The family of this 507-nucleotide RNA sequence from Wenjunlia vitaminophila is "Saccharopolyspora sRNA 350". The match comes from Rfam's covariance-model search (164 bits). Rfam links the family to the GO term regulation of secondary metabolite biosynthetic process. Rfam 15.1 lists 1,170 matches to the family in 705 species. For this family Rfam cites "Prediction and characterization of small non-coding RNAs related to secondary metabolites in Saccharopolyspora erythraea" (Liu et al., PLoS One, 2013).
[Rfam]
RNA sequence: CGGACGGUGAACGGCCAGCUCUGACCGGGGUCAGUGAUCACCUGGGCCCCGAAGUGGGCGCCGUCGGCGAGGACGUCCAGGACGGUAUCGUCACCGUACUUGCCCUCGCCGAGCUGCUGCGUCCGGCCGUGGACGAUCAGGUAGACCUGGUCCGCCGGCUGCCCGGCCUGCGCGAUCACCUCUCCGGCCCGGAAGUCCUGCUGCACGAAGCGGUCCGCGAGGGCGGUGAGCACCGCGGUGUCCUCGAAGUCCCGUAACACCGCGAUCUCACGGAGCUCGUCCGGGAUCACCCGGACCUCGGCGCCGGUCUGCACGAAGGUGAUCCGGCCGUCGCCGAGGGUGUAGCUGAGCCGACGGUUCACCCGGUAGGCACCGCCCCUCGCCUCCACCCAGGGAAGCACGCGCAACAGCCAGCGGGAGGUGAUUCCCUGCAUUUGCGGCACGGACUUGGUGGUCGUCGCCAGAUUUCGCGCAGCGGCCGUACCGAGACUGAGCUGCGGUUGGCCG
Numbered sequence: 001c002g003g004a005c006g007g008u009g010a011a012c013g014g015c016c017a018g019c020u021c022u023g024a025c026c027g028g029g030g031u032c033a034g035u036g037a038u039c040a041c042c043u044g045g046g047c048c049c050c051g052a053a054g055u056g057g058g059c060g061c062c063g064u065c066g067g068c069g070a071g072g073a074c075g076u077c078c079a080g081g082a083c084g085g086u087a088u089c090g091u092c093a094c095c096g097u098a099c100u101u102g103c104c105c106u107c108g109c110c111g112a113g114c115u116g117c118u119g120c121g122u123c124c125g126g127c128c129g130u131g132g133a134c135g136a137u138c139a140g141g142u143a144g145a146c147c148u149g150g151u152c153c154g155c156c157g158g159c160u161g162c163c164c165g166g167c168c169u170g171c172g173c174g175a176u177c178a179c180c181u182c183u184c185c186g187g188c189c190c191g192g193a194a195g196u197c198c199u200g201c202u203g204c205a206c207g208a209a210g211c212g213g214u215c216c217g218c219g220a221g222g223g224c225g226g227u228g229a230g231c232a233c234c235g236c237g238g239u240g241u242c243c244u245c246g247a248a249g250u251c252c253c254g255u256a257a258c259a260c261c262g263c264g265a266u267c268u269c270a271c272g273g274a275g276c277u278c279g280u281c282c283g284g285g286a287u288c289a290c291c292c293g294g295a296c297c298u299c300g301g302c303g304c305c306g307g308u309c310u311g312c313a314c315g316a317a318g319g320u321g322a323u324c325c326g327g328c329c330g331u332c333g334c335c336g337a338g339g340g341u342g343u344a345g346c347u348g349a350g351c352c353g354a355c356g357g358u359u360c361a362c363c364c365g366g367u368a369g370g371c372a373c374c375g376c377c378c379c380u381c382g383c384c385u386c387c388a389c390c391c392a393g394g395g396a397a398g399c400a401c402g403c404g405c406a407a408c409a410g411c412c413a414g415c416g417g418g419a420g421g422u423g424a425u426u427c428c429c430u431g432c433a434u435u436u437g438c439g440g441c442a443c444g445g446a447c448u449u450g451g452u453g454g455u456c457g458u459c460g461c462c463a464g465a466u467u468u469c470g471c472g473c474a475g476c477g478g479c480c481g482u483a484c485c486g487a488g489a490c491u492g493a494g495c496u497g498c499g500g501u502u503g504g505c506c507g
Base pairs, nucleotide, nucleotide: 006390007389008388009387011385014328015327018324022322024320025319026318031316032315035313036312040308041307042306045305046304047303049301050300051299052298054233055232059228060227061226062225063224064223065111066110067109068108075103077102079100080099082097083096084095085094086093117222118221120219122217127212130209131206134203135202139199140198141197143196150190154188155187156186157185158184160178161177164174165173167172236294240290241289244286245285253279254278256277258275262269329342330341331340332339353377355375356374357373362370363369391431392430393429394428395427396426397425399423400422401421403418405416437476438475440473443470444469445468446467448464449463450462451461452460477506478505480503481502484499487496488495